This 87-nucleotide RNA sequence from Suricata suricatta belongs to the Rfam family "Small nucleolar RNA U83B".
For this family Rfam cites "Characterisation of the U83 and U84 small nucleolar RNAs: two novel 2'-O-ribose methylation guide RNAs that lack complementarities to ribosomal RNAs" (Jady and Kiss, Nucleic Acids Res, 2000).
Rfam's curators write: U83B belongs to the C/D family of snoRNAs. U83B like U83A has no documented RNA target and they share the same host gene with the C/D box snoRNA U43 (RPL3). N.B. U83A/B/C have no sequence similarity with the U83 snoRNA that was cloned by Jady and Kiss (2000).
Rfam links the family to the GO terms nucleolus and RNA processing.
RNA sequence: GCUCUUUGGUGAGGAGGCUCUGGAAUGAGUGUUGGGCUCACGGCAUGGGCAGGAUUGCAGACUCUCCCUGCCUUGUUUGAGAACAGC
Numbered sequence: 001g002c003u004c005u006u007u008g009g010u011g012a013g014g015a016g017g018c019u020c021u022g023g024a025a026u027g028a029g030u031g032u033u034g035g036g037c038u039c040a041c042g043g044c045a046u047g048g049g050c051a052g053g054a055u056u057g058c059a060g061a062c063u064c065u066c067c068c069u070g071c072c073u074u075g076u077u078u079g080a081g082a083a084c085a086g087c
Base pairs, nucleotide, nucleotide: 001087002086003085005083